The family of this 85-nucleotide RNA is "skipping-rope RNA". It is one of the family's seed sequences.
[Rfam]
RNA sequence: AGAAUCAGAGGACGGAACGGGCAGCCGUCACCGGAUGGUCGAAAGACCUGAGUAGGAGAUGCAGGAAUGUCACCCUGCCUAUUCU
Numbered sequence: 001a002g003a004a005u006c007a008g009a010g011g012a013c014g015g016a017a018c019g020g021g022c023a024g025c026c027g028u029c030a031c032c033g034g035a036u037g038g039u040c041g042a043a044a045g046a047c048c049u050g051a052g053u054a055g056g057a058g059a060u061g062c063a064g065g066a067a068u069g070u071c072a073c074c075c076u077g078c079c080u081a082u083u084c085u
Stems, first nucleotide, its partner, number of pairs: 001085005007080002011029005020071004031056001037048004061078005